The family of this 184-nucleotide sequence from Nitrosomonas europaea is "Proteobacterial sRNA psRNA2".
The organism belongs to Nitrosomonas europaea, within Bacteria.
A reference for the family is Gvakharia et al. (2010), "Computational prediction and transcriptional analysis of sRNAs in Nitrosomonas europaea", FEMS Microbiol Lett.
It scores 144 bits against the family's covariance model.
Rfam 15.1 lists 122 matches to the family in 36 species.

RNA sequence: GGAUUACUCCUUUACGCUUUCGCGUUUGGUUGAUAAAGAUUCGCACCUCUAUCAAACCGGGUAAUCCCACCUCUUGGCAAGACCUGCUGUCAGAUCAAAUCUGAACUACUACAGAUUAUUGUUUAGUUUAUGUGCAACUGAUCUAUUGAACGCUAAAAAUGAUCAGGCUAUUUUUGCUUUGUAG
Numbered sequence: 001g002g003a004u005u006a007c008u009c010c011u012u013u014a015c016g017c018u019u020u021c022g023c024g025u026u027u028g029g030u031u032g033a034u035a036a037a038g039a040u041u042c043g044c045a046c047c048u049c050u051a052u053c054a055a056a057c058c059g060g061g062u063a064a065u066c067c068c069a070c071c072u073c074u075u076g077g078c079a080a081g082a083c084c085u086g087c088u089g090u091c092a093g094a095u096c097a098a099a100u101c102u103g104a105a106c107u108a109c110u111a112c113a114g115a116u117u118a119u120u121g122u123u124u125a126g127u128u129u130a131u132g133u134g135c136a137a138c139u140g141a142u143c144u145a146u147u148g149a150a151c152g153c154u155a156a157a158a159a160u161g162a163u164c165a166g167g168c169u170a171u172u173u174u175u176g177c178u179u180u181g182u183a184g
Base pairs, nucleotide, nucleotide: 001067002066003065004064005063006062007061009060010059014025015024016023017022028058029057030056031055032053033052034051035050037048038047075145076144077143081138085136089106090105091103092102093101094100095099108133109132113129168184169183170182